[Rfam]
RNA sequence: UUUUUUUGUAAAGCGCCUGAACUGCACCGUAUGAGCGGAGAAAGACCACGGGCAGUUGACGAGGUGGAGGAGUAUCGAGAUUUCGGCGGAUGCCUCCCGGUGAGCGUUGUGCCACACCGACAGAGCGGUUUUCGAAAUCCGUUGGGCGACUGACGGGACAAGAGACGCUUAUGGUACAC
Numbered sequence: 001u002u003u004u005u006u007u008g009u010a011a012a013g014c015g016c017c018u019g020a021a022c023u024g025c026a027c028c029g030u031a032u033g034a035g036c037g038g039a040g041a042a043a044g045a046c047c048a049c050g051g052g053c054a055g056u057u058g059a060c061g062a063g064g065u066g067g068a069g070g071a072g073u074a075u076c077g078a079g080a081u082u083u084c085g086g087c088g089g090a091u092g093c094c095u096c097c098c099g100g101u102g103a104g105c106g107u108u109g110u111g112c113c114a115c116a117c118c119g120a121c122a123g124a125g126c127g128g129u130u131u132u133c134g135a136a137a138u139c140c141g142u143u144g145g146g147c148g149a150c151u152g153a154c155g156g157g158a159c160a161a162g163a164g165a166c167g168c169u170u171a172u173g174g175u176a177c178a179c
Base pairs, nucleotide, nucleotide: 020057021056022055023054024053025052027050066097067096068095069094070093075086076085077084078083098119099118100117101116102115124169125168126167127166129165130164131163139156140155141154142153143152144151145150